[Rfam]
RNA sequence: AAAUACUUGCCGCGCAAGACUCGUAUAUCCUUGGGGAUCAGGCCCGAGAGUAUCUACCCGAGAACCUUAAUUUUCGGACUACGAGCCCAUGCAGUCGAAGA
Dot-bracket structure: .................(.((((((....((((((.......)))))).........(((((((......)))))))..)))))).)..............
The family of this 101-nucleotide RNA from Paenibacillus montanisoli is "Purine riboswitch aptamer". Rfam links the family to the GO term purine nucleobase biosynthetic process. Taxonomically the source falls in Paenibacillus (Bacteria, Bacillati, Bacilli, Paenibacillaceae). From the family's description: Riboswitches are metabolite binding domains within certain messenger RNAs that serve as precision sensors for their corresponding targets.